[Rfam]
RNA sequence: AUGUACCACGCGUCCACUGCGGUUCUGAGCGCGCCGUCCGCGUCCACCUGACCGCUGCUCGCGACGUAUUCUUGCA
Numbered sequence: 001a002u003g004u005a006c007c008a009c010g011c012g013u014c015c016a017c018u019g020c021g022g023u024u025c026u027g028a029g030c031g032c033g034c035c036g037u038c039c040g041c042g043u044c045c046a047c048c049u050g051a052c053c054g055c056u057g058c059u060c061g062c063g064a065c066g067u068a069u070u071c072u073u074g075c076a
Base pairs, nucleotide, nucleotide: 002016003015005013006012020036021035022034023033025031048074050073051072054069
Shown here is a 76-nucleotide RNA sequence from Xanthomonas oryzae, a member of the family "Xanthomonas sRNA sX9". NCBI's taxonomy places the organism under Bacteria, Lysobacteraceae, Xanthomonas, Xanthomonas oryzae, Xanthomonas oryzae pv. oryzae. A reference for the family is Schmidtke et al. (2011), "Genome-wide transcriptome analysis of the plant pathogen Xanthomonas identifies sRNAs with putative virulence functions", Nucleic Acids Res. It is annotated as a small RNA.